[Rfam]
RNA sequence: GUGACGGUGCAGGCGUGGCGGGAGUCGCCGUCCAGGAGGGCUUCCUCACCGAAGUGCUCGCCGUCCGCGAGUACCGCGAGGGCGACCUCCGCGCCGUACUGGCCUUGGCCGGUCCGGCUGACGCGGCCGUGGGCGAUCAUGUGGAUGCGGUCGGCGGGUGCGCCGAGCUCGACGAGCACCUCGCCGGCGGCGAAGUCGCGCUGGGCGCAGCGGUCGGCGAGGGCGGUCAGGGCGUCGAGGUCCUCGAAGCCGCGCAGCAGGGCCAGUUCACCGAGUUCCCGGGGGAUCACGCGGACCGUGGCGCCCUCCUGGACGAACUCGAUGCGUCCGUCGCCGAGGGUGUGACGCAGUCGUCGGUUGACCCGGUAGGCACCGCCCUCGGUCUCGACCCAGGGGAGCAUCCGCAGCAGCCAGCGGGAGGUGAUCUCCUGCAUCUGCGGGGCGGACUUGGUGGUGGUGGCGAGAUUGCGGGCGGCGGCGGUGCUCAGGGACUGCUGCGGUGUCGCCG
Numbered sequence: 001g002u003g004a005c006g007g008u009g010c011a012g013g014c015g016u017g018g019c020g021g022g023a024g025u026c027g028c029c030g031u032c033c034a035g036g037a038g039g040g041c042u043u044c045c046u047c048a049c050c051g052a053a054g055u056g057c058u059c060g061c062c063g064u065c066c067g068c069g070a071g072u073a074c075c076g077c078g079a080g081g082g083c084g085a086c087c088u089c090c091g092c093g094c095c096g097u098a099c100u101g102g103c104c105u106u107g108g109c110c111g112g113u114c115c116g117g118c119u120g121a122c123g124c125g126g127c128c129g130u131g132g133g134c135g136a137u138c139a140u141g142u143g144g145a146u147g148c149g150g151u152c153g154g155c156g157g158g159u160g161c162g163c164c165g166a167g168c169u170c171g172a173c174g175a176g177c178a179c180c181u182c183g184c185c186g187g188c189g190g191c192g193a194a195g196u197c198g199c200g201c202u203g204g205g206c207g208c209a210g211c212g213g214u215c216g217g218c219g220a221g222g223g224c225g226g227u228c229a230g231g232g233c234g235u236c237g238a239g240g241u242c243c244u245c246g247a248a249g250c251c252g253c254g255c256a257g258c259a260g261g262g263c264c265a266g267u268u269c270a271c272c273g274a275g276u277u278c279c280c281g282g283g284g285g286a287u288c289a290c291g292c293g294g295a296c297c298g299u300g301g302c303g304c305c306c307u308c309c310u311g312g313a314c315g316a317a318c319u320c321g322a323u324g325c326g327u328c329c330g331u332c333g334c335c336g337a338g339g340g341u342g343u344g345a346c347g348c349a350g351u352c353g354u355c356g357g358u359u360g361a362c363c364c365g366g367u368a369g370g371c372a373c374c375g376c377c378c379u380c381g382g383u384c385u386c387g388a389c390c391c392a393g394g395g396g397a398g399c400a401u402c403c404g405c406a407g408c409a410g411c412c413a414g415c416g417g418g419a420g421g422u423g424a425u426c427u428c429c430u431g432c433a434u435c436u437g438c439g440g441g442g443c444g445g446a447c448u449u450g451g452u453g454g455u456g457g458u459g460g461c462g463a464g465a466u467u468g469c470g471g472g473c474g475g476c477g478g479c480g481g482u483g484c485u486c487a488g489g490g491a492c493u494g495c496u497g498c499g500g501u502g503u504c505g506c507c508g
Stems, first nucleotide, its partner, number of pairs: 006390003011385002014381002017328002020325001025322003028312002035309007049301003054233002057230002060227005065111001067109002077102001079100002082097003086093001118221002122217001127212001130209001132206001134204001136202001140198002143196001148192002154188002157185003164174002234296003240290002244286002250282003254278001256277003260271001262269001329342004353377001355375003362370002391431007399423003403418001405416001407415001437476002440473001443470002446467001448464002451461002477507002481501002484499001486497003